[Rfam]
RNA: mir-970 microRNA precursor family
Organism: Drosophila willistoni
RNA sequence: UUGUUGCAGCUAGCGGGUGUUUUAUUUGGUAGCUGCACUAAAAUUUCAAUAAUCUAUCAUAAGACACACGCGGCUAUGACCG
Numbered sequence: 001u002u003g004u005u006g007c008a009g010c011u012a013g014c015g016g017g018u019g020u021u022u023u024a025u026u027u028g029g030u031a032g033c034u035g036c037a038c039u040a041a042a043a044u045u046u047c048a049a050u051a052a053u054c055u056a057u058c059a060u061a062a063g064a065c066a067c068a069c070g071c072g073g074c075u076a077u078g079a080c081c082g
Stems, first nucleotide, its partner, number of pairs: 001082001003080004008075004013071003018066002021064003027059005